[Rfam]
A member of the RNA family "S4-Clostridia ribosomal protein leader", 67 nucleotides long. The sequence is in the family's curated seed alignment. Pairs were carried over by alignment from the consensus structure, which is taken from published work. By type it is a cis-regulatory leader. On this family, see Eckert and Weinberg, BMC Microbiol 2020: "Discovery of 20 novel ribosomal leader candidates in bacteria and archaea".
RNA sequence: GAAAGGUCACGGGAAAUUGUGGCUGGACGCAGUGAAGAAGGAUGAAGAUCCCGGCGUCCCAAUUUGA
Numbered sequence: 001g002a003a004a005g006g007u008c009a010c011g012g013g014a015a016a017u018u019g020u021g022g023c024u025g026g027a028c029g030c031a032g033u034g035a036a037g038a039a040g041g042a043u044g045a046a047g048a049u050c051c052c053g054g055c056g057u058c059c060c061a062a063u064u065u066g067a
Base pairs, nucleotide, nucleotide: 005024006023007022008021009020010019025059026058027057028056029055030054